[Rfam]
Source information: The family of this 89-nucleotide RNA sequence from Bisgaardia hudsonensis is "RpsF leader". From the family's description: Conserved and widely distributed to many bacterial species RNA structure. Rfam links the family to the GO terms protein binding and negative regulation of translation. The literature on the family includes a 2014 paper in RNA by Fu et al., "Bacterial RNA motif in the 5' UTR of rpsF interacts with an S6:S18 complex". The organism belongs to Bisgaardia, within Bacteria. Rfam classes the family as a cis-regulatory leader.
RNA sequence: GUCACACCUUAAUUUUCGUUCCUUGCUUCCGCAAGAUUGGUGACUGGUCUUACAGUCGGAGGCUGAUUAACCCGUAAGGAGCAGUAAUG
Numbered sequence: 001g002u003c004a005c006a007c008c009u010u011a012a013u014u015u016u017c018g019u020u021c022c023u024u025g026c027u028u029c030c031g032c033a034a035g036a037u038u039g040g041u042g043a044c045u046g047g048u049c050u051u052a053c054a055g056u057c058g059g060a061g062g063c064u065g066a067u068u069a070a071c072c073c074g075u076a077a078g079g080a081g082c083a084g085u086a087a088u089g
Stems, first nucleotide, its partner, number of pairs: 018082007025063006